[Rfam]
RNA sequence: UUAAAGAUACUUGCGUCACGUCCUAAAGUCGAGCGUUGAAGCGGCCGAGCAGAGCCGUGAGCCGUCGCAACAAAGGAUGGCGCCUCGGUGAGAACCACGGAGAGGUGAGAUUCCUAUGA
Numbered sequence: 001u002u003a004a005a006g007a008u009a010c011u012u013g014c015g016u017c018a019c020g021u022c023c024u025a026a027a028g029u030c031g032a033g034c035g036u037u038g039a040a041g042c043g044g045c046c047g048a049g050c051a052g053a054g055c056c057g058u059g060a061g062c063c064g065u066c067g068c069a070a071c072a073a074a075g076g077a078u079g080g081c082g083c084c085u086c087g088g089u090g091a092g093a094a095c096c097a098c099g100g101a102g103a104g105g106u107g108a109g110a111u112u113c114c115u116a117u118g119a
Base pairs, nucleotide, nucleotide: 012116013083014082015081016080017079018078084102085101086100088098089097090096103115104114105113
RNA: pemK RNA